[Rfam]
RNA: Rhizobiales sRNA Atu_At1
Organism: Devosia sp. Root413D1
RNA sequence: UGGCGCCGCGUGUCAACCGGACGCGAUGGGCACGGGGAACAUUGCGGUUUUUCCGGUUUCCCGCCUUGGCCAACGAAACGGCAGACGAGCCUCUGUUCCAUCCGCGGC
Numbered sequence: 001u002g003g004c005g006c007c008g009c010g011u012g013u014c015a016a017c018c019g020g021a022c023g024c025g026a027u028g029g030g031c032a033c034g035g036g037g038a039a040c041a042u043u044g045c046g047g048u049u050u051u052u053c054c055g056g057u058u059u060c061c062c063g064c065c066u067u068g069g070c071c072a073a074c075g076a077a078a079c080g081g082c083a084g085a086c087g088a089g090c091c092u093c094u095g096u097u098c099c100a101u102c103c104g105c106g107g108c
Stems, first nucleotide, its partner, number of pairs: 006107004011023004025102006034093004040068002044064003069082003